[Rfam]
RNA sequence: AAGGAAGCCUGGCAAGGCCAAGCGCGAGCCGGAAGAGAAGGCUCGAGCUCCCGCGACAGGCUACCCAGCACGGAUCCCGGCACCCACGCGGAGCUAAAGCCGCGAAAUAGGCAAAAGUGUUGCGGGCCUGCGUAAUUGUGAAGAGCGGACGACCACGACGGCCUCUUGGGUGGGGCUGCAGCCGUAGCGCAUCGCAGGGACGCCGAGGCCACCCACGCACACCCGACCAGCACGCUUGGUAACCGGAAUCCGUGCUAGCGGGCGGCGAGCCGAACCAGUUUCGGAGCGUCGCCCGCUUUCACUU
Numbered sequence: 001a002a003g004g005a006a007g008c009c010u011g012g013c014a015a016g017g018c019c020a021a022g023c024g025c026g027a028g029c030c031g032g033a034a035g036a037g038a039a040g041g042c043u044c045g046a047g048c049u050c051c052c053g054c055g056a057c058a059g060g061c062u063a064c065c066c067a068g069c070a071c072g073g074a075u076c077c078c079g080g081c082a083c084c085c086a087c088g089c090g091g092a093g094c095u096a097a098a099g100c101c102g103c104g105a106a107a108u109a110g111g112c113a114a115a116a117g118u119g120u121u122g123c124g125g126g127c128c129u130g131c132g133u134a135a136u137u138g139u140g141a142a143g144a145g146c147g148g149a150c151g152a153c154c155a156c157g158a159c160g161g162c163c164u165c166u167u168g169g170g171u172g173g174g175g176c177u178g179c180a181g182c183c184g185u186a187g188c189g190c191a192u193c194g195c196a197g198g199g200a201c202g203c204c205g206a207g208g209c210c211a212c213c214c215a216c217g218c219a220c221a222c223c224c225g226a227c228c229a230g231c232a233c234g235c236u237u238g239g240u241a242a243c244c245g246g247a248a249u250c251c252g253u254g255c256u257a258g259c260g261g262g263c264g265g266c267g268a269g270c271c272g273a274a275c276c277a278g279u280u281u282c283g284g285a286g287c288g289u290c291g292c293c294c295g296c297u298u299u300c301a302c303u304u
Stems, first nucleotide, its partner, number of pairs: 003065002006062006016052002021049002025045006067256008077246004084239003088235003093231002099112003119222002121219004125210005130203004136197006145190003149185003153181001159178007258296010270284003